[Rfam]
RNA sequence: GGGCUGGCAUUAACUCAAGCGGUUACUUCCUCACGCUGGACUUUCCAUCCAUCUAAUCCCUGCACUGGGGUUUGAGACCCGUGAGUCCUUUCUGACCCUUUA
Numbered sequence: 001g002g003g004c005u006g007g008c009a010u011u012a013a014c015u016c017a018a019g020c021g022g023u024u025a026c027u028u029c030c031u032c033a034c035g036c037u038g039g040a041c042u043u044u045c046c047a048u049c050c051a052u053c054u055a056a057u058c059c060c061u062g063c064a065c066u067g068g069g070g071u072u073u074g075a076g077a078c079c080c081g082u083g084a085g086u087c088c089u090u091u092c093u094g095a096c097c098c099u100u101u102a
Stems, first nucleotide, its partner, number of pairs: 002097002005094003013086004019082004027076003

The record is a 102-nucleotide RNA from Propithecus coquereli, which matches "Vault RNA" in Rfam. By type it is a non-coding RNA gene. The family's consensus secondary structure is taken from published work. From the family's description: This family of RNAs are found as part of the enigmatic vault ribonucleoprotein complex. The complex consists of a major vault protein (MVP), two minor vault proteins (VPARP and TEP1), and several small untranslated RNA molecules. It has been suggested that the vault complex is involved in drug resistance.